[Rfam]
RNA sequence: CUACGGCGCAGGCUUCAACCGGCGCCGUAGUUUUAACUUGAGCAGCGACUUACAAAGCCGCGGCUCUUAUUUUGAAGAAAUGAGACAAGCAGGGGCAUUCGGGUUGGUACCCGAACUAUCAGCGUGAUCCUAAGUGGCUUGUUUUGGUCGCUGCACUUGGCCUUUUGCAAGCAAACUCGGUGUUUUCGCCGGUGGUGUCCCCAAAUCGAGGGUGACCA
Numbered sequence: 001c002u003a004c005g006g007c008g009c010a011g012g013c014u015u016c017a018a019c020c021g022g023c024g025c026c027g028u029a030g031u032u033u034u035a036a037c038u039u040g041a042g043c044a045g046c047g048a049c050u051u052a053c054a055a056a057g058c059c060g061c062g063g064c065u066c067u068u069a070u071u072u073u074g075a076a077g078a079a080a081u082g083a084g085a086c087a088a089g090c091a092g093g094g095g096c097a098u099u100c101g102g103g104u105u106g107g108u109a110c111c112c113g114a115a116c117u118a119u120c121a122g123c124g125u126g127a128u129c130c131u132a133a134g135u136g137g138c139u140u141g142u143u144u145u146g147g148u149c150g151c152u153g154c155a156c157u158u159g160g161c162c163u164u165u166u167g168c169a170a171g172c173a174a175a176c177u178c179g180g181u182g183u184u185u186u187c188g189c190c191g192g193u194g195g196u197g198u199c200c201c202c203a204a205a206u207c208g209a210g211g212g213u214g215a216c217c218a
Stems, first nucleotide, its partner, number of pairs: 001030009011020002040066004045061002049057002092202004096197002098115006116195005122189003126185002129180002133177003138171005146163002149160001

The record is a 218-nucleotide RNA from Pseudomonas fluorescens, which matches "sucA-II RNA" in Rfam. NCBI's taxonomy places the organism under Bacteria, Gammaproteobacteria, Pseudomonadaceae, Pseudomonas, Pseudomonas fluorescens. By type it is a cis-regulatory element. The base pairs follow the family's consensus structure, which is taken from published work.